[Rfam]
The family of this 82-nucleotide RNA from Danionella cerebrum is "mir-128 microRNA precursor family". On this family, see Chen et al., Genes Dev 2005: "The developmental miRNA profiles of zebrafish as determined by small RNA cloning".
RNA sequence: GAGUGUGUGUACGGGGGGCCGAGGCGCUGUUUGAGAGACUCUGCUCAUCUCACAGUGAACCGGUCUCUUUUACACACUCUCA
Numbered sequence: 001g002a003g004u005g006u007g008u009g010u011a012c013g014g015g016g017g018g019c020c021g022a023g024g025c026g027c028u029g030u031u032u033g034a035g036a037g038a039c040u041c042u043g044c045u046c047a048u049c050u051c052a053c054a055g056u057g058a059a060c061c062g063g064u065c066u067c068u069u070u071u072a073c074a075c076a077c078u079c080u081c082a
Stems, first nucleotide, its partner, number of pairs: 006076005015067007025057006033051003
Dot-bracket structure: .....(((((....(((((((...((((((..(((.............)))))))))...)))))))....)))))......